[Rfam]
RNA sequence: AGAGACUGCCUUUCAGGCAUCCUCUCCCAAAGACUUCCAAGGGCCGGUCGAUUGACCGGCCCUUUUUUUGCCCGGUC
Numbered sequence: 001a002g003a004g005a006c007u008g009c010c011u012u013u014c015a016g017g018c019a020u021c022c023u024c025u026c027c028c029a030a031a032g033a034c035u036u037c038c039a040a041g042g043g044c045c046g047g048u049c050g051a052u053u054g055a056c057c058g059g060c061c062c063u064u065u066u067u068u069u070g071c072c073c074g075g076u077c
Stems, first nucleotide, its partner, number of pairs: 008018004041062009
RNA: Makes More Granules Regulator RNA (mmgR)